[Rfam]
RNA sequence: UUUAUGAAGCAUAAUGAUGAAUUGUAUUGAUCUGACCACAACCGUGAAGUCUGAAUUCAAUCCAACACUGAGCUUCAAAAA
Dot-bracket structure: (((.((((((.............................................................)))))).)))
RNA: Small nucleolar RNA SNORD69